The record is a 183-nucleotide RNA sequence from Bacillus sp. V59.32b, which matches "Lysine riboswitch aptamer" in Rfam.
NCBI's taxonomy places the organism under Bacteria, Bacillota, Bacilli, Bacillaceae, Bacillus.
[Rfam]
RNA sequence: CGAUGAGGUAGAGGCUGCGGCUUAGAUGAGUAUGGCGGACGAGAUACAGAGAAUAUCUUUGACUCCGUCAGAAGGGAUAAGUCGCCGAAGUUUGGAUAUAUUCACUGUAUACCCAGGCUGGCGGUGUUACCGAACAGGAACACCACUGUCACGUUUUUAAAGACGUGGGGAGCUACUUUCGGA
Numbered sequence: 001c002g003a004u005g006a007g008g009u010a011g012a013g014g015c016u017g018c019g020g021c022u023u024a025g026a027u028g029a030g031u032a033u034g035g036c037g038g039a040c041g042a043g044a045u046a047c048a049g050a051g052a053a054u055a056u057c058u059u060u061g062a063c064u065c066c067g068u069c070a071g072a073a074g075g076g077a078u079a080a081g082u083c084g085c086c087g088a089a090g091u092u093u094g095g096a097u098a099u100a101u102u103c104a105c106u107g108u109a110u111a112c113c114c115a116g117g118c119u120g121g122c123g124g125u126g127u128u129a130c131c132g133a134a135c136a137g138g139a140a141c142a143c144c145a146c147u148g149u150c151a152c153g154u155u156u157u158u159a160a161a162g163a164c165g166u167g168g169g170g171a172g173c174u175a176c177u178u179u180c181g182g183a
Stems, first nucleotide, its partner, number of pairs: 006178006017085008033070007089119007097111004120147002123144006130137001149168007
Gene Ontology term of the family: lysine biosynthetic process.